[Rfam]
A member of the RNA family "Bacterial small signal recognition particle RNA" from Arboricoccus pini, 91 nucleotides long.
The signal recognition particle (SRP) is a universally conserved ribonucleoprotein involved in the co-translational targeting of proteins to membranes.
Lineage of the source: Bacteria > Pseudomonadati > Alphaproteobacteria > Geminicoccales > Arboricoccus.
The family's consensus secondary structure is taken from published work.

RNA sequence: GGUUGGCGGUGGACGGUGCCCUCGCCAAGUCGGUCAGGUCCGGAAGGAAGCAGCCGUAACGAGUUUCGCGUCGGGUCGCACGUCAGCCUUC
Dot-bracket structure: ((((((..(((..((((((.((((......((((....(((....)))....))))...))))....))))))...))).)..)))))...